[Rfam]
RNA sequence: CGAUGGAGCCUUUCAGGCAUCCUCUCCUAAAACUUUUAUGGGUCGCCCUCGGGCGGCCCUUUUUUUGUCCGACG
Numbered sequence: 001c002g003a004u005g006g007a008g009c010c011u012u013u014c015a016g017g018c019a020u021c022c023u024c025u026c027c028u029a030a031a032a033c034u035u036u037u038a039u040g041g042g043u044c045g046c047c048c049u050c051g052g053g054c055g056g057c058c059c060u061u062u063u064u065u066u067g068u069c070c071g072a073c074g
Stems, first nucleotide, its partner, number of pairs: 008018004040059008
Makes More Granules Regulator RNA (mmgR): a 74-nucleotide RNA sequence from Sphingomonas paeninsulae. Gene Ontology terms of the family: DNA-templated transcription, termination, response to nitrogen compound and protein binding. The pairing is the family consensus, mapped onto this sequence. NCBI's taxonomy places the organism under Bacteria, Pseudomonadati, Pseudomonadota, Alphaproteobacteria, Sphingomonas. It scores 47 bits against the family's covariance model.